Archaeal small subunit ribosomal RNA: a 600-nucleotide part of an RNA from uncultured archaeon A07HR60. Its Rfam clan is "SSU clan". Gene Ontology terms of the family: structural constituent of ribosome and ribosome.
RNA sequence: UGGCGGGGGAGCACUACAACCGGAGGAGCCUGCGGUUUAAUUGGACUCAACGCCGGACAUCUCACCAGCCCCGACUGUGAUCAUGACGGUCAGGUUGACUGCCUCAUCACGAGUCACAGAGAGGAGGUGCAUGGCCGCCGUCAGCUCGUACCGUGAGGCGUCCUGUUAAGUCAGGCAACGAGCGAGACCCGGGUCCUUACUUGCCAGCAACGUCGCGAGACGGUUGGGGACAGUAGGGAGACUGCCGUCGCGAAGACGGAGGAAGGAACGGGCAACGGUAGGUCAGUAUGCCCCGAAUGGGUUGGGCAACACGCGGGCUACAAUGGUCGGGACAACGGGUUCCUACACCGAAAGGUGACGGUAAUCUCGCAAACCCGAUCGUAGUUCGGAUUGUGGACUGCAACUCGUCCACAUGAAGCUGGAUUCGGUAGUAAUCGCGUGUCAGAAGCGCGCGGUGAAUACGUCCCUGCUCCUUGCACACACCGCCCGUCAAAGCACCCGAGUGAGGUCCGGAUGAGGCUCCCGACUGGGAGUCGAAUCCGGGUUUCGCAAGGGGGCUUAAGUCGUAACAAGGUAGCCGUAGGGGAAUCUGCGGCUGGA
Number, nucleotide and partner (000 for none) at each position: 001u480002g479003g477004c476005g475006g000007g474008g473009g472010a471011g470012c469013a468014c000015u000016a464017c463018a000019a000020c428021c427022g426023g425024a424025g321026g000027a319028g318029c317030c316031u315032g314033c313034g312035g310036u309037u000038u000039a000040a000041u056042u055043g054044g053045a000046c000047u000048c000049a000050a000051c000052g000053c044054c043055g042056g041057a000058c000059a000060u000061c000062u000063c000064a000065c305066c304067a303068g302069c301070c300071c299072c000073g000074a000075c119076u118077g117078u116079g000080a114081u113082c000083a000084u000085g000086a000087c000088g108089g107090u106091c000092a104093g103094g102095u000096u000097g000098a000099c000100u000101g000102c094103c093104u092105c000106a090107u089108c088109a000110c000111g000112a000113g081114u080115c000116a078117c077118a076119g075120a000121g000122a000123g294124g293125a000126g292127g291128u290129g289130c000131a000132u288133g287134g283135c282136c281137g279138c278139c277140g276141u000142c000143a000144g183145c182146u181147c180148g179149u178150a000151c158152c157153g000154u000155g000156a000157g152158g151159c000160g000161u000162c175163c174164u173165g172166u000167u000168a000169a000170g000171u000172c165173a164174g163175g162176c000177a000178a149179c148180g147181a146182g145183c144184g000185a000186g000187a000188c000189c271190c270191g269192g000193g000194u239195c238196c237197u236198u235199a234200c233201u000202u000203g000204c228205c227206a000207g000208c226209a225210a224211c222212g221213u220214c219215g000216c000217g000218a000219g214220a213221c212222g211223g000224u210225u209226g208227g205228g204229g000230a000231c000232a000233g200234u199235a198236g197237g196238g195239a194240g000241a000242c262243u261244g000245c259246c258247g257248u256249c255250g000251c000252g000253a000254a000255g249256a248257c247258g246259g245260a000261g243262g242263a000264a000265g000266g000267a000268a000269c191270g190271g189272g000273c000274a000275a000276c140277g139278g138279u137280a000281g136282g135283u134284c000285a000286g000287u133288a132289u129290g128291c127292c126293c124294c123295g000296a000297a000298u000299g071300g070301g069302u068303u067304g066305g065306g000307c000308a000309a036310c035311a000312c034313g033314c032315g031316g030317g029318c028319u027320a000321c025322a000323a000324u000325g380326g379327u378328c377329g376330g375331g374332a000333c000334a000335a000336c000337g368338g367339g366340u000341u000342c361343c360344u000345a000346c357347a356348c355349c354350g000351a000352a000353a000354g349355g348356u347357g346358a000359c000360g343361g342362u000363a000364a000365u000366c339367u338368c337369g000370c000371a000372a000373a000374c331375c330376c329377g328378a327379u326380c325381g000382u000383a000384g000385u000386u000387c418388g000389g000390a000391u000392u413393g412394u411395g410396g409397a408398c407399u000400g000401c000402a000403a000404c000405u000406c000407g398408u397409c396410c395411a394412c393413a392414u000415g000416a000417a000418g387419c000420u000421g000422g000423a000424u024425u023426c022427g021428g020429u000430a000431g000432u000433a000434a456435u455436c454437g453438c452439g451440u450441g449442u000443c000444a000445g000446a000447a000448g000449c441450g440451c439452g438453c437454g436455g435456u434457g000458a000459a000460u000461a000462c000463g017464u016465c000466c000467c000468u013469g012470c011471u010472c009473c008474u007475u005476g004477c003478a000479c002480a001481c000482a000483c573484c000485g570486c000487c000488c566489g565490u000491c563492a000493a560494a559495g558496c557497a000498c555499c554500c553501g000502a000503g550504u549505g548506a547507g546508g545509u544510c543511c542512g541513g540514a539515u538516g000517a000518g535519g534520c533521u532522c531523c530524c529525g000526a000527c000528u000529g524530g523531g522532a521533g520534u519535c518536g000537a000538a515539u514540c513541c512542g511543g510544g509545u508546u507547u506548c505549g504550c503551a000552a000553g500554g499555g498556g000557g496558c495559u494560u493561a000562a000563g491564u000565c489566g488567u000568a000569a000570c485571a000572a000573g483574g000575u598576a597577g596578c595579c594580g593581u592582a591583g590584g589585g000586g000587a000588a000589u584590c583591u582592g581593c580594g579595g578596c577597u576598g575599g000600a000